[Rfam]
Shown here is a 154-nucleotide sequence from Solanum lycopersicum, a member of the family "Small nucleolar RNA snoR2/U65". Its Rfam clan is "SNORA65 clan". Gene Ontology terms of the family: RNA processing and nucleolus. The match comes from Rfam's covariance-model search (120 bits). Pairs were carried over by alignment from the consensus structure, which was predicted with WAR. A reference for the family is Shaw et al. (1998), "Localization and processing from a polycistronic precursor of novel snoRNAs in maize", J Cell Sci. The organism belongs to Solanum subgen. Lycopersicon, within Eukaryota.

RNA sequence: GGUCCGAUGCCACGUCGACGGUAGCAAAAUGCGAUGACCGACGAUGCUAUGAUUGGGCCAACAACAAGUUUUAAUUAACGUUUCGCAUUCUGAUAGGAAUCUGUGUAUGGAUUUUUUCAAUUCCUUCACAGAGCCGUUUCGUGCGAUUACAUUC
Numbered sequence: 001g002g003u004c005c006g007a008u009g010c011c012a013c014g015u016c017g018a019c020g021g022u023a024g025c026a027a028a029a030u031g032c033g034a035u036g037a038c039c040g041a042c043g044a045u046g047c048u049a050u051g052a053u054u055g056g057g058c059c060a061a062c063a064a065c066a067a068g069u070u071u072u073a074a075u076u077a078a079c080g081u082u083u084c085g086c087a088u089u090c091u092g093a094u095a096g097g098a099a100u101c102u103g104u105g106u107a108u109g110g111a112u113u114u115u116u117u118c119a120a121u122u123c124c125u126u127c128a129c130a131g132a133g134c135c136g137u138u139u140c141g142u143g144c145g146a147u148u149a150c151a152u153u154c
Stems, first nucleotide, its partner, number of pairs: 002058007009050001013046005020039003024032003083146005096135002101131003105127001107125001109123001